[Rfam]
Rfam assigns this 59-nucleotide RNA sequence from Dissostichus mawsoni to the family "mir-723 microRNA precursor family". Rfam links the family to the GO terms RISC complex and miRNA-mediated post-transcriptional gene silencing. The source organism's lineage runs through Eukaryota, Actinopterygii, Euteleosteomorpha, Percomorphaceae and Dissostichus. The match comes from Rfam's covariance-model search (73 bits).
RNA sequence: GGCAGUUUUGAUGAUGUUACUUCUUUUAUUUUUAAGAAGACAUCAGAUAAAUCUGUGCU
Numbered sequence: 001g002g003c004a005g006u007u008u009u010g011a012u013g014a015u016g017u018u019a020c021u022u023c024u025u026u027u028a029u030u031u032u033u034a035a036g037a038a039g040a041c042a043u044c045a046g047a048u049a050a051a052u053c054u055g056u057g058c059u
Stems, first nucleotide, its partner, number of pairs: 002056004007051004012045006020039006